[Rfam]
RNA sequence: AUGGAGGUGAUGACUAUUUCCCCAGAUGAUCGACGCUGAUUAAACUGUGCGCAACUUUUUUCUCUUUUGAGAAAUCCAAGCCAGAUGUCUGAUCCAU
Numbered sequence: 001a002u003g004g005a006g007g008u009g010a011u012g013a014c015u016a017u018u019u020c021c022c023c024a025g026a027u028g029a030u031c032g033a034c035g036c037u038g039a040u041u042a043a044a045c046u047g048u049g050c051g052c053a054a055c056u057u058u059u060u061u062c063u064c065u066u067u068u069g070a071g072a073a074a075u076c077c078a079a080g081c082c083a084g085a086u087g088u089c090u091g092a093u094c095c096a097u
Stems, first nucleotide, its partner, number of pairs: 001097005
RNA: Small nucleolar RNA Z103